RNA sequence: GAAUGAUAUGAUGAUUUAUUUUGUUUUCCUAUUGGUUUGAUUGCCGUGAUGAUGGCAUCAAUUGUGUAUUAGCUCUAUCUGAUCAUUC
Numbered sequence: 001g002a003a004u005g006a007u008a009u010g011a012u013g014a015u016u017u018a019u020u021u022u023g024u025u026u027u028c029c030u031a032u033u034g035g036u037u038u039g040a041u042u043g044c045c046g047u048g049a050u051g052a053u054g055g056c057a058u059c060a061a062u063u064g065u066g067u068a069u070u071a072g073c074u075c076u077a078u079c080u081g082a083u084c085a086u087u088c
Stems, first nucleotide, its partner, number of pairs: 002087004039059001042057004

Record summary
The family of this 88-nucleotide RNA sequence from Ricinus communis is "Small nucleolar RNA Z102/R77". Pairs were carried over by alignment from the consensus structure, which was predicted with PFOLD. Rfam links the family to the GO terms nucleolus and RNA processing. On this family, see Barneche et al., J Mol Biol 2001: "Identification of 66 box C/D snoRNAs in Arabidopsis thaliana: extensive gene duplications generated multiple isoforms predicting new ribosomal RNA 2'-O-methylation sites". Its Rfam clan is "SNORD44 clan".